[Rfam]
RNA: MIR5269 microRNA precursor family
Organism: Medicago truncatula
RNA sequence: UUGGGUGAAAUCAAUGUAGGACCUAUACUUUAAAAAUGGAACCCACAUAAAAUGGUGAGACAUAUAUUGAUUUCACCCAA
Numbered sequence: 001u002u003g004g005g006u007g008a009a010a011u012c013a014a015u016g017u018a019g020g021a022c023c024u025a026u027a028c029u030u031u032a033a034a035a036a037u038g039g040a041a042c043c044c045a046c047a048u049a050a051a052a053u054g055g056u057g058a059g060a061c062a063u064a065u066a067u068u069g070a071u072u073u074c075a076c077c078c079a080a
Stems, first nucleotide, its partner, number of pairs: 001080018024057002026054002029051004
Dot-bracket structure: ((((((((((((((((((.....((((.((((...............)))).)).)).....))))))))))))))))))